Rfam assigns this 65-nucleotide part of an RNA from Cercocebus atys to the family "Eukaryotic large subunit ribosomal RNA". Rfam links the family to the GO terms ribosome and structural constituent of ribosome.
RNA sequence: ACGCAGUCCGCCCGGAAGAUUCAACCCGGUGGUGGAUCUGGCCGUGUUGGCGGCCCGGCGGAUCU
Dot-bracket structure: .......(((((.(........................................).)))))....
Numbered sequence: 001a002c003g004c005a006g007u008c009c010g011c012c013c014g015g016a017a018g019a020u021u022c023a024a025c026c027c028g029g030u031g032g033u034g035g036a037u038c039u040g041g042c043c044g045u046g047u048u049g050g051c052g053g054c055c056c057g058g059c060g061g062a063u064c065u
Stems, first nucleotide, its partner, number of pairs: 008061005014055001
The match comes from Rfam's covariance-model search (2262 bits). NCBI's taxonomy places the organism under Eukaryota, Metazoa, Craniata, Mammalia, Cercocebus.